[Rfam]
RNA: Small nucleolar RNA SNORD73
Organism: Alca torda
RNA sequence: AAUGAAUGAUGACAAAAUGUUUCGGUCCCAGAUGAUAUGGAAUGAUUCCAUUUCCCCAUUUUCUGACAUU
Numbered sequence: 001a002a003u004g005a006a007u008g009a010u011g012a013c014a015a016a017a018u019g020u021u022u023c024g025g026u027c028c029c030a031g032a033u034g035a036u037a038u039g040g041a042a043u044g045a046u047u048c049c050a051u052u053u054c055c056c057c058a059u060u061u062u063c064u065g066a067c068a069u070u
Stems, first nucleotide, its partner, number of pairs: 001070004